[Rfam]
A member of the RNA family "SAM (S-adenosyl methionine) riboswitch aptamer" from Metallococcus carri, 117 nucleotides long.
The family is grouped with related families in Rfam's "SAM clan".
The match comes from Rfam's covariance-model search (100 bits).

RNA sequence: GGUCACGAGUGCCAGCGCGUAGCCCCGGCUUGCUGGCCGGCAACCCUCCACCGCGGUGGGGUGCCCCGGGUGAUGACCGGGCCGCCGGCGCGGAUCGCCGGUGCGCAAGCGCGGGAU
Numbered sequence: 001g002g003u004c005a006c007g008a009g010u011g012c013c014a015g016c017g018c019g020u021a022g023c024c025c026c027g028g029c030u031u032g033c034u035g036g037c038c039g040g041c042a043a044c045c046c047u048c049c050a051c052c053g054c055g056g057u058g059g060g061g062u063g064c065c066c067c068g069g070g071u072g073a074u075g076a077c078c079g080g081g082c083c084g085c086c087g088g089c090g091c092g093g094a095u096c097g098c099c100g101g102u103g104c105g106c107a108a109g110c111g112c113g114g115g116a117u
Stems, first nucleotide, its partner, number of pairs: 001078004009038001011037006021030002039065003044061003048056002081106002083103008

The organism belongs to Metallococcus, within Bacteria. The family's consensus secondary structure is taken from published work.